[Rfam]
Nucleotides: 094
Stems, first nucleotide, its partner, number of pairs: 001094003005090001
Number, partner (000 for none) and nucleotide at each position: 001094u002093g003092g004000c005090c006000g007000g008000u009000g010000a011000u012000g013000g014000a015000u016000g017000a018000a019000a020000c021000c022000a023000g024000a025000g026000u027000u028000g029000u030000a031000c032000a033000g034000a035000c036000a037000c038000u039000c040000u041000u042000a043000g044000u045000g046000a047000g048000u049000u050000g051000a052000a053000u054000g055000a056000a057000g058000u059000g060000c061000a062000a063000u064000g065000a066000c067000a068000c069000a070000c071000a072000c073000u074000c075000a076000c077000a078000u079000u080000g081000c082000a083000u084000c085000u086000c087000u088000g089000a090005g091000a092003c093002c094001a

The record is a 94-nucleotide RNA from Oryza nivara, which matches "Small nucleolar RNA Z163/Z177 family" in Rfam. The family's RNA type in Rfam is C/D-box small nucleolar RNA. On this family, see Chen et al., Nucleic Acids Res 2003: "The high diversity of snoRNAs in plants: identification and comparative study of 120 snoRNA genes from Oryza sativa". Rfam 15.1 lists 49 matches to the family in 12 species. The base pairs follow the family's consensus structure. The match comes from Rfam's covariance-model search (100 bits).